[Rfam]
RNA: tRNA
Organism: Alistipes communis
RNA sequence: GGAGAGGUGGGUGAGUGGCUGAAACCACCGGUUUGCUAAACCGACGUGCUGGGCAACCGGCACCACGAGUUCGAAUCUCGUCCUCUCCG
Number, nucleotide and partner (000 for none) at each position: 001g088002g087003a086004g085005a084006g083007g082008u000009g000010g026011g025012u024013g000014a000015g000016u000017g000018g000019c000020u000021g000022a000023a000024a012025c011026c010027a000028c000029c043030g042031g041032u040033u000034u000035g000036c000037u000038a000039a000040a032041c031042c030043g029044a000045c000046g000047u000048g000049c000050u000051g000052g000053g000054c000055a000056a000057c000058c000059g000060g000061c000062a000063c000064c000065a081066c080067g079068a078069g077070u000071u000072c000073g000074a000075a000076u000077c069078u068079c067080g066081u065082c007083c006084u005085c004086u003087c002088c001089g000